[Rfam]
RNA sequence: UGGGCCUGCCGCGACUGGCGAGGGUGGACCACCACCGGGGAGCGGCCCGGACAUGCGGAGGGGACGUCGCCCGCCUGGGCGUCCCGC
Numbered sequence: 001u002g003g004g005c006c007u008g009c010c011g012c013g014a015c016u017g018g019c020g021a022g023g024g025u026g027g028a029c030c031a032c033c034a035c036c037g038g039g040g041a042g043c044g045g046c047c048c049g050g051a052c053a054u055g056c057g058g059a060g061g062g063g064a065c066g067u068c069g070c071c072c073g074c075c076u077g078g079g080c081g082u083c084c085c086g087c
Stems, first nucleotide, its partner, number of pairs: 005049001008046005015039002017075004024035004064082005
ZMP/ZTP riboswitch aptamer (pfl RNA motif): an 87-nucleotide RNA sequence from Actinomyces bowdenii. It scores 47 bits against the family's covariance model.